The record is an 87-nucleotide RNA sequence from Nocardioides zeae, which matches "Actino-pnp RNA" in Rfam. It is annotated as a cis-regulatory element. The family's consensus secondary structure is taken from published work.
RNA sequence: CCCGGUCCUCGGUAGUGGCCCUCGGAUCCCCGGCGCCCUCCUGCGGAGGCCGCCCGGAUGCUCCGCGGGCCUCGAUCGAAGACCGGC
Dot-bracket structure: .((((((.(((((...(((((.((((...................................)))).)))))...))))).)))))).